[Rfam]
RNA sequence: GGCGGGCUGCCCCUCUUUCCCUGUUGCACUACUGUCACCCAUGCAGCAAGCAGUGCAAUAAUGAAAGGGCGUCAGUGCGCC
Numbered sequence: 001g002g003c004g005g006g007c008u009g010c011c012c013c014u015c016u017u018u019c020c021c022u023g024u025u026g027c028a029c030u031a032c033u034g035u036c037a038c039c040c041a042u043g044c045a046g047c048a049a050g051c052a053g054u055g056c057a058a059u060a061a062u063g064a065a066a067g068g069g070c071g072u073c074a075g076u077g078c079g080c081c
Base pairs, nucleotide, nucleotide: 001081002080003079006076007075008074009073013069014068015067016066017065018064019063022060023059024058025057026056027055028054029053030052